[Rfam]
RNA: pan motif
RNA sequence: UGGGUAGUAUCGAAAGAGAAUUACACCAUAAUUUUUAGCAUUAAUAUUUAUAAUACAACUCAUAUCUAUUGUGAAUGAGAUUGAAAU
Numbered sequence: 001u002g003g004g005u006a007g008u009a010u011c012g013a014a015a016g017a018g019a020a021u022u023a024c025a026c027c028a029u030a031a032u033u034u035u036u037a038g039c040a041u042u043a044a045u046a047u048u049u050a051u052a053a054u055a056c057a058a059c060u061c062a063u064a065u066c067u068a069u070u071g072u073g074a075a076u077g078a079g080a081u082u083g084a085a086a087u
Stems, first nucleotide, its partner, number of pairs: 001028003004024005010019002056083003059079005065074002